Rfam assigns this 317-nucleotide RNA from Helopsaltes ochotensis to the family "7SK RNA". The base pairs follow the family's consensus structure, which is taken from published work. The source organism's lineage runs through Eukaryota, Bilateria, Deuterostomia, Sarcopterygii and Helopsaltes.
[Rfam]
RNA sequence: GGGUAUGAGGGUAGUCUGGCUGUGAGAUCUGAUAUGCAUGGGUUGAUCUGACUGACCUGACUAGGUUAGGCAGGUGUUCUCUUUCUUCCUCGACAUUCCGUGUGUGUUCCUCCUGAUGCUGUGUGCUUGGUUACUGAGGACAGCCUCCCCGAUAGACAUGGUAUUGUUGAUUGGUCAAGGCCUUGUGGUACCUGAGCUCUCCCGCUGGAAACUGUAAGUAAGCUCCAGGUCCAUUUGUAGGUGAAUGUAGGGUAGUCAAGCAUCCAAUACUGAAGACAUCCAAAUGAGAAGCUGCAUGCAGAAGUCGGCCAGUGUUU
Numbered sequence: 001g002g003g004u005a006u007g008a009g010g011g012u013a014g015u016c017u018g019g020c021u022g023u024g025a026g027a028u029c030u031g032a033u034a035u036g037c038a039u040g041g042g043u044u045g046a047u048c049u050g051a052c053u054g055a056c057c058u059g060a061c062u063a064g065g066u067u068a069g070g071c072a073g074g075u076g077u078u079c080u081c082u083u084u085c086u087u088c089c090u091c092g093a094c095a096u097u098c099c100g101u102g103u104g105u106g107u108u109c110c111u112c113c114u115g116a117u118g119c120u121g122u123g124u125g126c127u128u129g130g131u132u133a134c135u136g137a138g139g140a141c142a143g144c145c146u147c148c149c150c151g152a153u154a155g156a157c158a159u160g161g162u163a164u165u166g167u168u169g170a171u172u173g174g175u176c177a178a179g180g181c182c183u184u185g186u187g188g189u190a191c192c193u194g195a196g197c198u199c200u201c202c203c204g205c206u207g208g209a210a211a212c213u214g215u216a217a218g219u220a221a222g223c224u225c226c227a228g229g230u231c232c233a234u235u236u237g238u239a240g241g242u243g244a245a246u247g248u249a250g251g252g253u254a255g256u257c258a259a260g261c262a263u264c265c266a267a268u269a270c271u272g273a274a275g276a277c278a279u280c281c282a283a284a285u286g287a288g289a290a291g292c293u294g295c296a297u298g299c300a301g302a303a304g305u306c307g308g309c310c311a312g313u314g315u316u317u
Stems, first nucleotide, its partner, number of pairs: 001099003006092006013084002018081002024078002027075005033069001035063001037059002041057004045052001107161002111156002113130004118126002131152002138148003192260002197255002200252003204248002212243001215240001218238005282317003288310001291305003295301001

It is annotated as a non-coding RNA gene. The family is grouped with related families in Rfam's "7SK clan".